[Rfam]
RNA sequence: AAUAAUCUUCAGGGCGGAGUGUAAGUCUCCACCGGCGGUAAAGCCCGCGAGCUAAAUUUUUUAGCAUGAUUCGGUUAAAUUCCGAAGCCGACAGUUAAAGUCUGGAUGAAAGAAGAAUGGA
Numbered sequence: 001a002a003u004a005a006u007c008u009u010c011a012g013g014g015c016g017g018a019g020u021g022u023a024a025g026u027c028u029c030c031a032c033c034g035g036c037g038g039u040a041a042a043g044c045c046c047g048c049g050a051g052c053u054a055a056a057u058u059u060u061u062u063a064g065c066a067u068g069a070u071u072c073g074g075u076u077a078a079a080u081u082c083c084g085a086a087g088c089c090g091a092c093a094g095u096u097a098a099a100g101u102c103u104g105g106a107u108g109a110a111a112g113a114a115g116a117a118u119g120g121a
Base pairs, nucleotide, nucleotide: 003119004118006116007115008114009113010112017029018028019027031101032100033090034089035048036047037046038045043088044087053064070086071085072084073083074082092104093103094102

Shown here is a 121-nucleotide sequence from Clostridium tarantellae, a member of the family "FMN riboswitch aptamer (RFN element)".
Rfam's curators write: The RFN element is a highly conserved domain that is found frequently in the 5'-untranslated regions of prokaryotic mRNAs that encode for flavin mononucleotide (FMN) biosynthesis and transport proteins.